RNA sequence: CCGAGCUUUCGGGGCGGGGUGAAAGUCCCCACCGGCGGUGAUCGGGGAGCCUCCCCGUCAGCCCGCGAGCCGACGCCGAUAGGCGCAAGUCCUUGAGGCGGAAGCAGGAACCGGUGCGAUUCCGGUGCCGACGGUCAUAGUCCGGAUGGUAGAAAGCUUGG
Numbered sequence: 001c002c003g004a005g006c007u008u009u010c011g012g013g014g015c016g017g018g019g020u021g022a023a024a025g026u027c028c029c030c031a032c033c034g035g036c037g038g039u040g041a042u043c044g045g046g047g048a049g050c051c052u053c054c055c056c057g058u059c060a061g062c063c064c065g066c067g068a069g070c071c072g073a074c075g076c077c078g079a080u081a082g083g084c085g086c087a088a089g090u091c092c093u094u095g096a097g098g099c100g101g102a103a104g105c106a107g108g109a110a111c112c113g114g115u116g117c118g119a120u121u122c123c124g125g126u127g128c129c130g131a132c133g134g135u136c137a138u139a140g141u142c143c144g145g146a147u148g149g150u151a152g153a154a155a156g157c158u159u160g161g
Base pairs, nucleotide, nucleotide: 003159004158005157006156007155008154009153010152017029018028019027031141032140033130034129035066036065037064038063061128062127071104110126111125112124113123114122132144133143134142
This 161-nucleotide sequence from Parvularcula maris belongs to the Rfam family "FMN riboswitch aptamer (RFN element)". Lineage of the source: Bacteria > Pseudomonadota > Alphaproteobacteria > Parvularculaceae > Parvularcula. A search with the family's covariance model found it, with a score of 101 bits. The family's consensus secondary structure is taken from published work.